RNA sequence: AAGAAAGUGACUGCCGCCCCGCACAGGGGCGAGCCAAUAGACCGAUAAGAAAUCAAGUUUCACAGAAGCCGAGGCGCAUCAGACGGUUCAACAAACCCCAACCCCAAGCACCAG
Numbered sequence: 001a002a003g004a005a006a007g008u009g010a011c012u013g014c015c016g017c018c019c020c021g022c023a024c025a026g027g028g029g030c031g032a033g034c035c036a037a038u039a040g041a042c043c044g045a046u047a048a049g050a051a052a053u054c055a056a057g058u059u060u061c062a063c064a065g066a067a068g069c070c071g072a073g074g075c076g077c078a079u080c081a082g083a084c085g086g087u088u089c090a091a092c093a094a095a096c097c098c099c100a101a102c103c104c105c106a107a108g109c110a111c112c113a114g
Stems, first nucleotide, its partner, number of pairs: 011086003015031006057077002109114001